[Rfam]
RNA sequence: UACCUUUGCAAACGUAAAUAUGGAUACACCGUAUUUCAUGCAUAAAAAUCAUUAAAAAUAAUAUUGGCAUG
Numbered sequence: 001u002a003c004c005u006u007u008g009c010a011a012a013c014g015u016a017a018a019u020a021u022g023g024a025u026a027c028a029c030c031g032u033a034u035u036u037c038a039u040g041c042a043u044a045a046a047a048a049u050c051a052u053u054a055a056a057a058a059u060a061a062u063a064u065u066g067g068c069a070u071g
Base pairs, nucleotide, nucleotide: 016036017035018034019033020032021031
Rfam assigns this 71-nucleotide RNA from Myroides odoratimimus to the family "S15-Flavobacteria ribosomal protein leader". It is annotated as a cis-regulatory leader. The base pairs follow the family's consensus structure, which is taken from published work. The sequence is in the family's curated seed alignment.